UnaL2 LINE 3' element: a 54-nucleotide RNA sequence from Oncorhynchus mykiss. Rfam classes the family as a cis-regulatory element. The eel long interspersed element (LINE) UnaL2 and its partner short interspersed element (SINE) share a conserved 3' tail containing a stem-loop that is critical for their retrotransposition. Presumably, the first step of retrotransposition is the recognition of their 3' tails by UnaL2-encoded reverse transcriptase. The solution structure of a 17-nucleotide RNA derived from the 3' tail of UnaL2 was determined by NMR. A reference for the family is Baba et al. (2004), "Solution structure of an RNA stem-loop derived from the 3' conserved region of eel LINE UnaL2", RNA. The organism belongs to Oncorhynchus, within Eukaryota. It scores 60 bits against the family's covariance model. Pairs were carried over by alignment from the consensus structure, which is taken from published work.
RNA sequence: UGCACUCAUUACUGUAAGUCGCUGUGGAUAAGAGUGUCUGCUAAAUAACUCAAA
Numbered sequence: 001u002g003c004a005c006u007c008a009u010u011a012c013u014g015u016a017a018g019u020c021g022c023u024g025u026g027g028a029u030a031a032g033a034g035u036g037u038c039u040g041c042u043a044a045a046u047a048a049c050u051c052a053a054a
Stems, first nucleotide, its partner, number of pairs: 013043001014041003020036004025031001